[Rfam]
RNA: Small nucleolar RNA snoR99
Organism: Hibiscus syriacus
RNA sequence: GUGUUUUAGGAAUGAACUGUUCCCUCGUGCCUAAUAUCAGUCUAAAUCACUGUGUGGGUUGCCUUUUUUGGUUGCAUGCUGCCUCAUUAUAGGAUGGAAAAUGG
Numbered sequence: 001g002u003g004u005u006u007u008a009g010g011a012a013u014g015a016a017c018u019g020u021u022c023c024c025u026c027g028u029g030c031c032u033a034a035u036a037u038c039a040g041u042c043u044a045a046a047u048c049a050c051u052g053u054g055u056g057g058g059u060u061g062c063c064u065u066u067u068u069u070g071g072u073u074g075c076a077u078g079c080u081g082c083c084u085c086a087u088u089a090u091a092g093g094a095u096g097g098a099a100a101a102u103g104g
Stems, first nucleotide, its partner, number of pairs: 037098002040095003054084001056082001057080003